Shown here is a 174-nucleotide sequence from bacteria symbiont BFo2 of Frankliniella occidentalis, a member of the family "SraG RNA". A reference for the family is Argaman et al. (2001), "Novel small RNA-encoding genes in the intergenic regions of Escherichia coli", Curr Biol. It scores 70 bits against the family's covariance model. By type it is a small RNA. This RNA was discovered in E. coli during a large scale screen. Evidence was found for specific cleavage of this RNA. Taxonomically the source falls in Enterobacterales (Bacteria, Pseudomonadati, Pseudomonadota, Gammaproteobacteria).
[Rfam]
RNA sequence: UGAAUAGUUUGCAUCCUCGCGACUAAUGGUAAGACUCAAUAAACAGCUUAAGCCCUGUCAUUAGCCGCGCGAAUCGUGCAACUUUCUUUCACUGAACAACAGUAUAACACUGUAGUGCCUGUUACAAAAUGGACAACUAAUAUUCAAAAAAAGGGGCCUUGUAGGCCCCUUACA
Numbered sequence: 001u002g003a004a005u006a007g008u009u010u011g012c013a014u015c016c017u018c019g020c021g022a023c024u025a026a027u028g029g030u031a032a033g034a035c036u037c038a039a040u041a042a043a044c045a046g047c048u049u050a051a052g053c054c055c056u057g058u059c060a061u062u063a064g065c066c067g068c069g070c071g072a073a074u075c076g077u078g079c080a081a082c083u084u085u086c087u088u089u090c091a092c093u094g095a096a097c098a099a100c101a102g103u104a105u106a107a108c109a110c111u112g113u114a115g116u117g118c119c120u121g122u123u124a125c126a127a128a129a130u131g132g133a134c135a136a137c138u139a140a141u142a143u144u145c146a147a148a149a150a151a152a153g154g155g156g157c158c159u160u161g162u163a164g165g166c167c168c169c170u171u172a173c174a
Base pairs, nucleotide, nucleotide: 002086003085004084006083007082011079012078013077018071019070020069021068023064024063025062026061027060028059029058153169154168155167156166157165158164